[Rfam]
RNA sequence: GACUUACAUUCAGUGGCGAGCUUAACUGAUUAAGGCAGGCGUAGCGAAAGCGAGUUCGAAUAGAGCGCAUAGUCGCUGGAUGUAGACCCGAAACCGGAUGAUCUAUCCAUGGCCAGGUUGAAGGUGCGGUAACACGCACUGGAGGACCGAACCCACUAAUGUUGAAAAAUUAGGGGAUGAGCUGUGGAUAGGAGUGAAAGGCUAAACAAAUCCGGAAAUAGCUGGUU
Numbered sequence: 001g002a003c004u005u006a007c008a009u010u011c012a013g014u015g016g017c018g019a020g021c022u023u024a025a026c027u028g029a030u031u032a033a034g035g036c037a038g039g040c041g042u043a044g045c046g047a048a049a050g051c052g053a054g055u056u057c058g059a060a061u062a063g064a065g066c067g068c069a070u071a072g073u074c075g076c077u078g079g080a081u082g083u084a085g086a087c088c089c090g091a092a093a094c095c096g097g098a099u100g101a102u103c104u105a106u107c108c109a110u111g112g113c114c115a116g117g118u119u120g121a122a123g124g125u126g127c128g129g130u131a132a133c134a135c136g137c138a139c140u141g142g143a144g145g146a147c148c149g150a151a152c153c154c155a156c157u158a159a160u161g162u163u164g165a166a167a168a169a170u171u172a173g174g175g176g177a178u179g180a181g182c183u184g185u186g187g188a189u190a191g192g193a194g195u196g197a198a199a200g201g202c203u204a205a206a207c208a209a210a211u212c213c214g215g216a217a218a219u220a221g222c223u224g225g226u227u
Stems, first nucleotide, its partner, number of pairs: 005084013020040004026034002044051002054066004087225002090222001094215006103191011114179001116148004123140006152176003156173005193203003

Bacterial large subunit ribosomal RNA: a 227-nucleotide part of an RNA from Oligella urethralis. NCBI's taxonomy places the organism under Bacteria, Pseudomonadati, Burkholderiales, Oligella, Oligella urethralis.